[Rfam]
RNA sequence: CGUGUGGUGUCCGACGUUGAUUCGGAUAGCGACACGGCCUAAAUUGAGGU
Numbered sequence: 001c002g003u004g005u006g007g008u009g010u011c012c013g014a015c016g017u018u019g020a021u022u023c024g025g026a027u028a029g030c031g032a033c034a035c036g037g038c039c040u041a042a043a044u045u046g047a048g049g050u
Stems, first nucleotide, its partner, number of pairs: 001036005007030002011025004015019001
RNA: L31-Gammaproteobacteria ribosomal protein leader